[Rfam]
RNA: PyrR binding site
Nucleotides: 141
Stems, first nucleotide, its partner, number of pairs: 004036005014029005044075002047072001049070009104136012117123001
Number, partner (000 for none) and nucleotide at each position: 001000a002000u003000u004036a005035c006034c007033u008032u009000u010000a011000a012000a013000a014029c015028a016027g017026u018025c019000c020000u021000g022000u023000g024000a025018g026017g027016c028015u029014g030000g031000c032008a033007a034006g035005g036004u037000u038000u039000g040000u041000g042000c043000g044075g045074a046000u047072u048000c049070g050069u051068u052067g053066u054065g055064c056063a057062u058000a059000u060000u061000g062057a063056u064055g065054c066053g067052c068051a069050a070049u071000c072047a073000u074045u075044u076000u077000a078000g079000g080000c081000a082000g083000g084000c085000u086000a087000c088000a089000g090000c091000u092000u093000g094000u095000c096000u097000a098000a099000a100000u101000g102000a103000a104136a105135u106134g107133c108132a109131c110130c111129u112128u113127g114126c115125c116000a117123g118000u119000u120000u121000a122000u123117c124000g125115g126114g127113c128112a129111a130110g131109g132108u133107g134106c135105a136104u137000u138000u139000u140000u141000u